JUMPstart RNA: a 38-nucleotide sequence from Pectobacterium atrosepticum. By type it is a cis-regulatory element. The sequence is in the family's curated seed alignment. NCBI's taxonomy places the organism under Bacteria, Pseudomonadati, Pseudomonadota, Gammaproteobacteria, Pectobacterium atrosepticum.
RNA sequence: CAGUGCAUUGGUAGCUAUGAGCCAAGGGCGGUAGCGUG
Numbered sequence: 001c002a003g004u005g006c007a008u009u010g011g012u013a014g015c016u017a018u019g020a021g022c023c024a025a026g027g028g029c030g031g032u033a034g035c036g037u038g
Stems, first nucleotide, its partner, number of pairs: 008025005